[Rfam]
RNA sequence: GCCUUCUGAGUAGCUGGUAUAGCAACUGAGAAACCAGUUUUCUUCAGAUAGC
Numbered sequence: 001g002c003c004u005u006c007u008g009a010g011u012a013g014c015u016g017g018u019a020u021a022g023c024a025a026c027u028g029a030g031a032a033a034c035c036a037g038u039u040u041u042c043u044u045c046a047g048a049u050a051g052c
Base pairs, nucleotide, nucleotide: 001052002051005048006047007046008045009044012039013038014037015036016035017034018033020025
Dot-bracket structure: ((..(((((..(((((((.(....).......)))))))....)))))..))
Rfam assigns this 52-nucleotide sequence from Crocuta crocuta to the family "MAT2A 3'UTR stem loop C".